[Rfam]
RNA sequence: AUCAUUACCCUAACUUGAGCAUUGCCUUGUCUUGUACUAAUUUAGUAAGUGCUACUUGUUGGGGUAGUUUUA
Numbered sequence: 001a002u003c004a005u006u007a008c009c010c011u012a013a014c015u016u017g018a019g020c021a022u023u024g025c026c027u028u029g030u031c032u033u034g035u036a037c038u039a040a041u042u043u044a045g046u047a048a049g050u051g052c053u054a055c056u057u058g059u060u061g062g063g064g065u066a067g068u069u070u071u072a
Stems, first nucleotide, its partner, number of pairs: 004068008013059002017055001018053006026045002